This 275-nucleotide RNA sequence from Alphacoronavirus triaenopis belongs to the Rfam family "Alphacoronavirus 5'UTR".
The family is grouped with related families in Rfam's "Coronavirus 5' UTR".
The pairing is the family consensus, mapped onto this sequence.
The source organism's lineage runs through Viruses, Pisuviricota, Pisoniviricetes, Alphacoronavirus and NL63-related bat coronavirus strain BtKYNL63-9b.
A reference for the family is Madhugiri et al. (2016), "Coronavirus cis-Acting RNA Elements", Adv Virus Res.
The family's RNA type in Rfam is cis-regulatory element.
It is one of the family's seed sequences.

RNA sequence: CUUUGUGUCUACUCUUCUCAACUAAACGAAAUUUUUCUAGUGCUGGUAUGUAUAAUGCCAGUACUGGUGUAAUUGAAAUUUCGCCAGGUUCGUAAAGUGGUUAGGCAAGUGUUGUGUGCCCUGUGUUUAAGUACUGGUGGUUCCGUCCACUGGUGCACUCGCUUGGCACCUAAGCAGUGUUCCGUCAUUGCUUAGUGUGGAAACAACGUUCUGUCGUUGUGGAAACCAAUAACUGCUAACCAUGUCCUACAACCAAGUGACACUUGCGGUUGCAA
Dot-bracket structure: (.....)....................(((((((.(((((..(((((((.....)))))))..)))).)......))))))).......(.(....(((((((.((.(((((((........(((.......((((((((......)))))))).....))).........((((((((......))))))))...((....((((((......))))))....))))))).)))))))))))......).).......................